FMN riboswitch aptamer (RFN element): a 127-nucleotide RNA from Thermoanaerobacterium thermosaccharolyticum.

[Rfam]
RNA sequence: GAAUAUCUUCAGGGCAGGGUGAAAUUCCCGACCGGCGGUAAGCGUAAGCGAGCCCGCGACCCGCAUAUGCGGUGGACUUGGUGAGAUUCCAAGGCCGACAGUAAAGUCUGGAUGGAAGAAGAUUUAU
Numbered sequence: 001g002a003a004u005a006u007c008u009u010c011a012g013g014g015c016a017g018g019g020u021g022a023a024a025u026u027c028c029c030g031a032c033c034g035g036c037g038g039u040a041a042g043c044g045u046a047a048g049c050g051a052g053c054c055c056g057c058g059a060c061c062c063g064c065a066u067a068u069g070c071g072g073u074g075g076a077c078u079u080g081g082u083g084a085g086a087u088u089c090c091a092a093g094g095c096c097g098a099c100a101g102u103a104a105a106g107u108c109u110g111g112a113u114g115g116a117a118g119a120a121g122a123u124u125u126a127u
Stems, first nucleotide, its partner, number of pairs: 003125001005123006017029003031107002033097002035057004052095002061072002077093005099110003
It scores 123 bits against the family's covariance model. NCBI's taxonomy places the organism under Bacteria, Thermoanaerobacterales, Thermoanaerobacteraceae, Thermoanaerobacterium, Thermoanaerobacterium thermosaccharolyticum.